[Rfam]
RNA sequence: CCGGCUCCUGAUUGUCCAAACGCAAUUCUUGCGUCUGCGCCCAAGAAUUGAGUGUGGACGUCGUGAGCCGG
Numbered sequence: 001c002c003g004g005c006u007c008c009u010g011a012u013u014g015u016c017c018a019a020a021c022g023c024a025a026u027u028c029u030u031g032c033g034u035c036u037g038c039g040c041c042c043a044a045g046a047a048u049u050g051a052g053u054g055u056g057g058a059c060g061u062c063g064u065g066a067g068c069c070g071g
Base pairs, nucleotide, nucleotide: 002070003069004068005067006066007065009063010062011061012060014059015058016057017056018055021052023050024049025048026047027046028045029044030043031042
A member of the RNA family "mir-219 microRNA precursor family" from Chelydra serpentina, 71 nucleotides long. The source organism's lineage runs through Eukaryota, Opisthokonta, Teleostomi, Testudines and Chelydra. A search with the family's covariance model found it, with a score of 68 bits.